[Rfam]
Nucleotides: 075
Stems, first nucleotide, its partner, number of pairs: 002073006010065003015060003020055003024051006
Number, partner (000 for none) and nucleotide at each position: 001000g002073a003072g004071c005070g006069g007068g008000a009000a010065c011064c012063c013000g014000u015060a016059g017058a018000u019000a020055c021054g022053a023000a024051c025050u026049u027048g028047u029046g030000u031000c032000u033000u034000a035000c036000g037000g038000g039000a040000c041000a042000c043000a044000a045000c046029c047028a048027c049026a050025a051024g052000c053022u054021c055020g056000c057000u058017u059016c060015u061000a062000c063012g064011g065010g066000u067000c068007u069006u070005u071004g072003c073002u074000u075000u

The record is a 75-nucleotide sequence from Trichonephila clavipes, which matches "mir-10 microRNA precursor family" in Rfam. Its family is annotated with RISC complex and miRNA-mediated post-transcriptional gene silencing in the Gene Ontology. The organism belongs to Trichonephila, within Eukaryota. It scores 51 bits against the family's covariance model. The family has 36 seed sequences and 3,853 matches in Rfam 15.1. On this family, see Lee and Ambros, Science 2001: "An extensive class of small RNAs in Caenorhabditis elegans". Pairs were carried over by alignment from the consensus structure, which was predicted with PFOLD.